The family of this 77-nucleotide sequence from Gouania willdenowi is "Small nucleolar RNA SNORD66". About the family: snoRNA HBII-142 is part of the C/D family of snoRNAs. It is the human orthologue of the mouse MBII-142 snoRNA and is predicted to guide 2'O-ribose methylation of small 18S rRNA at residue C1272. On this family, see Huttenhofer et al., EMBO J 2001: "RNomics: an experimental approach that identifies 201 candidates for novel, small, non-messenger RNAs in mouse".

[Rfam]
RNA sequence: CUUCAAUGAUGAUUGUUCUUUAGUGCCACGACUCUGUGCCACGAAAUGUCAAUGAUGGUGAGAAGGAACUGAUGAAG
Numbered sequence: 001c002u003u004c005a006a007u008g009a010u011g012a013u014u015g016u017u018c019u020u021u022a023g024u025g026c027c028a029c030g031a032c033u034c035u036g037u038g039c040c041a042c043g044a045a046a047u048g049u050c051a052a053u054g055a056u057g058g059u060g061a062g063a064a065g066g067a068a069c070u071g072a073u074g075a076a077g
Stems, first nucleotide, its partner, number of pairs: 001077004